[Rfam]
RNA sequence: UCCCCCGCUUUUCCUCCCUGAGCGGGAGCCUUGACGCGUGACAGCAACGAGGCAUUUAAGCUCCGGCCCUGGUCGGGGCUUUUUUUU
Numbered sequence: 001u002c003c004c005c006c007g008c009u010u011u012u013c014c015u016c017c018c019u020g021a022g023c024g025g026g027a028g029c030c031u032u033g034a035c036g037c038g039u040g041a042c043a044g045c046a047a048c049g050a051g052g053c054a055u056u057u058a059a060g061c062u063c064c065g066g067c068c069c070u071g072g073u074c075g076g077g078g079c080u081u082u083u084u085u086u087u
Stems, first nucleotide, its partner, number of pairs: 004026006028053006060079008